[Rfam]
RNA sequence: AUACCCUGCGGAAUGCUCAGGUCCGCCGCAUCUCCUGGGUCCGUAGGGUCGGCCGGCGCGCAAUUGGUCCUGGAGUGGCCUCCUCGAAACGCCAAUAGCCGCCGGCCGCCUU
Number, nucleotide and partner (000 for none) at each position: 001a000002u000003a049004c048005c047006c046007u045008g044009c043010g042011g000012a000013a000014u000015g000016c039017u038018c037019a036020g035021g034022u000023c000024c000025g000026c000027c000028g000029c000030a000031u000032c000033u000034c021035c020036u019037g018038g017039g016040u000041c000042c010043g009044u008045a007046g006047g005048g004049u003050c000051g107052g106053c105054c104055g103056g102057c101058g100059c000060g099061c098062a000063a000064u000065u000066g000067g000068u000069c000070c000071u000072g000073g000074a000075g000076u000077g000078g000079c000080c000081u000082c000083c000084u000085c000086g000087a000088a000089a000090c000091g000092c000093c000094a000095a000096u000097a000098g061099c060100c058101g057102c056103c055104g054105g053106c052107c051108g000109c000110c000111u000112u000
Rfam assigns this 112-nucleotide sequence to the family "EcpR1". The family's RNA type in Rfam is small RNA. Rfam describes the family as follows. Perviously named SmelC291, SmrC10, or Sra33. Gene Ontology terms of the family: negative regulation of cell cycle, regulation of translation in response to stress and mRNA binding.